[Rfam]
RNA sequence: CUCACCCAGGGCUCCCACAGCUCAGGGGGCAGGCCUGAGCCCUGCGCCCGCCCUGAAUCCAUCCGGCCCCCGACGGGGCACCCCAUCCCAAGGGGCUCCGCACUGGCCCCCACGGAGGUAGGGGACCCGACCGACUGGCACCUCGGCUGGAUGUUACAGGCGUAAAAA
Dot-bracket structure: .......(((((((...(.((((...))))..)...)))))))(((((.(.........((((((..((((...((((.......))))..)))).(.(....(((.((((.........)))).)).)........).).(...).))))))...).))))).....
Numbered sequence: 001c002u003c004a005c006c007c008a009g010g011g012c013u014c015c016c017a018c019a020g021c022u023c024a025g026g027g028g029g030c031a032g033g034c035c036u037g038a039g040c041c042c043u044g045c046g047c048c049c050g051c052c053c054u055g056a057a058u059c060c061a062u063c064c065g066g067c068c069c070c071c072g073a074c075g076g077g078g079c080a081c082c083c084c085a086u087c088c089c090a091a092g093g094g095g096c097u098c099c100g101c102a103c104u105g106g107c108c109c110c111c112a113c114g115g116a117g118g119u120a121g122g123g124g125a126c127c128c129g130a131c132c133g134a135c136u137g138g139c140a141c142c143u144c145g146g147c148u149g150g151a152u153g154u155u156a157c158a159g160g161c162g163u164a165a166a167a168a
Stems, first nucleotide, its partner, number of pairs: 008043007018033001020030004044163005050157001060153006068095004075089004097140001099138001104129001105127002108124004142146001